[Rfam]
RNA sequence: GGGAAGUGAUGAGUGGUCAUCGCUCGCAAUUAAACAUGCGAGAUGGGGUGUCUGCCUAAAGCUUUACGACAAUUAGGCACCUCCAAUUCUUUACCGUCUGAUCCC
Numbered sequence: 001g002g003g004a005a006g007u008g009a010u011g012a013g014u015g016g017u018c019a020u021c022g023c024u025c026g027c028a029a030u031u032a033a034a035c036a037u038g039c040g041a042g043a044u045g046g047g048g049u050g051u052c053u054g055c056c057u058a059a060a061g062c063u064u065u066a067c068g069a070c071a072a073u074u075a076g077g078c079a080c081c082u083c084c085a086a087u088u089c090u091u092u093a094c095c096g097u098c099u100g101a102u103c104c105c
Base pairs, nucleotide, nucleotide: 001105002104003103004102014096015095016094017093023042024041025040026039027038045083046082047081049079050078051077052076064072

Shown here is a 105-nucleotide RNA from Lactuca sativa, a member of the family "Small nucleolar RNA Z279/snoR105/snoR108". A reference for the family is Marker et al. (2002), "Experimental RNomics: identification of 140 candidates for small non-messenger RNAs in the plant Arabidopsis thaliana", Curr Biol. A search with the family's covariance model found it, with a score of 79 bits. The family's RNA type in Rfam is C/D-box small nucleolar RNA.